Shown here is a 140-nucleotide RNA from Aphis glycines, a member of the family "U4 spliceosomal RNA".

RNA sequence: AGCUUUGCGCAGUGGCGAUAUCGUAACCAAUGAGGUCCAUCCGAGGUGCGAUUAUUGCUAGUUGAAAACUUUAACCAAUACCCCGCCGGGUGGACAUGAAACACUGUCCGCUCAGGCAAUUUUUAGCGGCCCUAGCGGGC
Dot-bracket structure: ...................(((((.(((.....((.....))..))))))))................................((((((((((((........))))))))).)))...........((((....))))

U4 small nuclear RNA (U4 snRNA) is a component of the major U2-dependent spliceosome. Rfam classes the family as a spliceosomal small nuclear RNA. Rfam 15.1 lists 32,178 matches to the family in 2,547 species. It scores 114 bits against the family's covariance model.